RNA sequence: GGGAAUGGAUGAGUGCUGGUGUGCUCUCUGGACUUCAAAUCCAGUAGUGGGUAUGAACAAUAUCCAUGAUGGGUUCGAUUCCCAUGCAUUCCC
Number, nucleotide and partner (000 for none) at each position: 001g093002g092003g091004a090005a089006u088007g087008g000009a085010u000011g026012a025013g024014u023015g022016c021017u000018g000019g000020u000021g016022u015023g014024c013025u012026c011027u000028c044029u043030g042031g041032a040033c000034u000035u000036c000037a000038a000039a000040u032041c031042c030043a029044g028045u000046a000047g067048u066049g065050g064051g063052u000053a000054u000055g000056a000057a000058c000059a000060a000061u000062a000063u051064c050065c049066a048067u047068g000069a000070u084071g083072g082073g081074u000075u000076c000077g000078a000079u000080u000081c073082c072083c071084a070085u009086g000087c007088a006089u005090u004091c003092c002093c001

Shown here is a 93-nucleotide RNA sequence from Anaerobranca californiensis, a member of the family "Selenocysteine transfer RNA". The organism belongs to Anaerobranca californiensis, within Bacteria. The family's consensus secondary structure is taken from published work. For this family Rfam cites "Eukaryotic selenocysteine tRNA has the 9/4 secondary structure" (Mizutani and Goto, FEBS Lett, 2000).